[Rfam]
RNA sequence: CGGUCGAGCGGCUCCCCUUGGGACGGGAGCCAGGAAUGGACCGAUCCCCCUGAUUUCAUCGGCGUGCAACCGGCCACCCCACCGGGCCGCACG
Numbered sequence: 001c002g003g004u005c006g007a008g009c010g011g012c013u014c015c016c017c018u019u020g021g022g023a024c025g026g027g028a029g030c031c032a033g034g035a036a037u038g039g040a041c042c043g044a045u046c047c048c049c050c051u052g053a054u055u056u057c058a059u060c061g062g063c064g065u066g067c068a069a070c071c072g073g074c075c076a077c078c079c080c081a082c083c084g085g086g087c088c089g090c091a092c093g
Base pairs, nucleotide, nucleotide: 001043002042003041004040005039010031011030012029013028014027015026016025063093064092065091066090067089070085071084072083073082
RNA: Rhodo-rpoB RNA
Organism: Mangrovicoccus algicola